[Rfam]
RNA: Fluoride riboswitch aptamer (crcB RNA motif)
Organism: Listeria kieliensis
RNA sequence: UACUGGAAAGGCGAUGGAGUUCGCCUAAAAUGCGAUAUUCGCUGAUGACUCCUAUUUAAAU
Numbered sequence: 001u002a003c004u005g006g007a008a009a010g011g012c013g014a015u016g017g018a019g020u021u022c023g024c025c026u027a028a029a030a031u032g033c034g035a036u037a038u039u040c041g042c043u044g045a046u047g048a049c050u051c052c053u054a055u056u057u058a059a060a061u
Stems, first nucleotide, its partner, number of pairs: 010025004016052006032042003